A member of the RNA family "Cyano-1 RNA", 64 nucleotides long. The family's consensus secondary structure is taken from published work.
RNA sequence: GCCUAAGUGAGGAGAAAAGCUCACGGGGUGGAAACAAGGAAACACGCCGAGUGAGUUUUUUAAA
Numbered sequence: 001g002c003c004u005a006a007g008u009g010a011g012g013a014g015a016a017a018a019g020c021u022c023a024c025g026g027g028g029u030g031g032a033a034a035c036a037a038g039g040a041a042a043c044a045c046g047c048c049g050a051g052u053g054a055g056u057u058u059u060u061u062a063a064a
Base pairs, nucleotide, nucleotide: 015060016059017058018057019056020055021054022053026048027047028045029044030043